Shown here is a 71-nucleotide RNA sequence from Halocynthiibacter styelae, a member of the family "Singlet oxygen resistance RNA X". It is annotated as a small RNA. About the family: SorX (RSs2461)like SorY is a singlet oxygen induced sRNA that counteracts oxidative stress by targeting mRNA for a transporter in Rhodobacter. It also has an impact on resistance against organic hydroperoxides. It targets SD sequence of potA mRNA via an aSD sequence. The aSD sequence and some neighbouring nucleotides are identical to the one of SorY (targets takP mRNA). Gene Ontology term of the family: response to photooxidative stress. The literature on the family includes a 2016 paper in RNA Biol by Peng et al., "Regulation of a polyamine transporter by the conserved 3' UTR-derived sRNA SorX confers resistance to singlet oxygen and organic hydroperoxides in Rhodobacter sphaeroides".
RNA sequence: AUCCCGUGGUGCCCGGGUUAUGGCACUUCUCUCCCUUAUGGACUGGCCCGGCUUUAUGCCGGGUCUUUUUU
Numbered sequence: 001a002u003c004c005c006g007u008g009g010u011g012c013c014c015g016g017g018u019u020a021u022g023g024c025a026c027u028u029c030u031c032u033c034c035c036u037u038a039u040g041g042a043c044u045g046g047c048c049c050g051g052c053u054u055u056a057u058g059c060c061g062g063g064u065c066u067u068u069u070u071u
Base pairs, nucleotide, nucleotide: 008027009026010025011024012023013022045065046064047063048062049061050060051059052058